[Rfam]
RNA sequence: UUGCUUACUUCUUCACUCGGAUCGUUCGGCACGUACCUGCCGAUGAAAGGAAGCCAUCA
Numbered sequence: 001u002u003g004c005u006u007a008c009u010u011c012u013u014c015a016c017u018c019g020g021a022u023c024g025u026u027c028g029g030c031a032c033g034u035a036c037c038u039g040c041c042g043a044u045g046a047a048a049g050g051a052a053g054c055c056a057u058c059a
Stems, first nucleotide, its partner, number of pairs: 009050002012047004026043006
This 59-nucleotide RNA from Corynebacterium phocae belongs to the Rfam family "msiK RNA". It is annotated as a cis-regulatory element. The family's consensus secondary structure is taken from published work. It scores 51 bits against the family's covariance model. Lineage of the source: Bacteria > Bacillati > Actinomycetota > Actinomycetes > Corynebacterium.